[Rfam]
Nucleotides: 210
Stems, first nucleotide, its partner, number of pairs: 009046004015042002021040008073087005089115007150177001152175002182203008
Number, partner (000 for none) and nucleotide at each position: 001000g002000c003000a004000a005000c006000g007000c008000u009046a010045g011044c012043c013000u014000g015042a016041a017000c018000g019000g020000c021040u022039u023038g024037a025036u026035u027034c028033u029000c030000u031000u032000u033028g034027g035026a036025a037024u038023c039022a040021a041016u042015u043012g044011g045010c046009u047000u048000a049000g050000u051000u052000g053000u054000u055000g056000c057000g058000a059000u060000g061000u062000u063000g064000u065000g066000u067000u068000u069000g070000c071000a072000a073087a074086c075085u076084c077083g078000u079000u080000u081000u082000u083077c084076g085075a086074g087073u088000u089115a090114g091113g092112u093111a094110g095109g096000u097000u098000u099000c100000u101000a102000c103000c104000a105000u106000u107000g108000u109095u110094u111093u112092g113091u114090c115089u116000c117000a118000c119000u120000u121000a122000u123000c124000c125000c126000a127000g128000a129000g130000g131000c132000a133000a134000a135000a136000c137000a138000u139000a140000u141000a142000c143000u144000u145000c146000c147000u148000g149000u150177a151000u152175u153174u154000a155000u156000u157000u158000u159000u160000u161000g162000a163000c164000c165000u166000g167000u168000c169000u170000g171000u172000c173000a174153a175152a176000u177150u178000u179000u180000u181000u182203a183202g184201c185200a186199c187198c188197g189196c190000c191000u192000u193000a194000u195000g196189g197188c198187g199186g200185u201184g202183u203182u204000u205000u206000u207000u208000u209000a210000u